[Rfam]
RNA: Lysine riboswitch aptamer
Organism: Bacillus sp. 7884-1
RNA sequence: CAGUGAGGUAGAGGCGCGAUAUUUAACAGUCUUUAGUGGAGCUUGAGAAGCCAUGAUGGUAAAGAGAAGGAAAUGUCGCCGAAGUUUGUAAUAUUCUCGGUAUUACAUGCUGGGUCUGUAGUUAAGAGCUGCAGGACUGUCUCAAUAAACUCUCCGGUUUAUUGAGUUGUGCUAUCUCAAUU
Numbered sequence: 001c002a003g004u005g006a007g008g009u010a011g012a013g014g015c016g017c018g019a020u021a022u023u024u025a026a027c028a029g030u031c032u033u034u035a036g037u038g039g040a041g042c043u044u045g046a047g048a049a050g051c052c053a054u055g056a057u058g059g060u061a062a063a064g065a066g067a068a069g070g071a072a073a074u075g076u077c078g079c080c081g082a083a084g085u086u087u088g089u090a091a092u093a094u095u096c097u098c099g100g101u102a103u104u105a106c107a108u109g110c111u112g113g114g115u116c117u118g119u120a121g122u123u124a125a126g127a128g129c130u131g132c133a134g135g136a137c138u139g140u141c142u143c144a145a146u147a148a149a150c151u152c153u154c155c156g157g158u159u160u161a162u163u164g165a166g167u168u169g170u171g172c173u174a175u176c177u178c179a180a181u182u
Stems, first nucleotide, its partner, number of pairs: 006177006016079009031064005037058002083111003087107008112138002115135008141166009